[Rfam]
RNA sequence: UCCUCAUUUAGCUCACUCUCUCACCGGUCAGACAGACGAGAGAGUGUGUGAAAUGAAGAGA
Number, nucleotide and partner (000 for none) at each position: 001u059002c058003c000004u056005c055006a054007u053008u000009u000010a000011g000012c048013u000014c046015a045016c044017u043018c000019u041020c040021u039022c038023a000024c000025c000026g000027g000028u000029c000030a000031g000032a000033c000034a000035g000036a000037c000038g022039a021040g020041a019042g000043a017044g016045u015046g014047u000048g012049u000050g000051a000052a000053a007054u006055g005056a004057a000058g002059a001060g000061a000

The family of this 61-nucleotide sequence from Pristionchus pacificus is "mir-8364 microRNA precursor family". A search with the family's covariance model found it, with a score of 69 bits. Taxonomically the source falls in Pristionchus (Eukaryota, Protostomia, Rhabditida, Neodiplogasteridae). The family has 13 seed sequences and 3,320 matches in Rfam 15.1. Its family is annotated with miRNA-mediated post-transcriptional gene silencing and RISC complex in the Gene Ontology.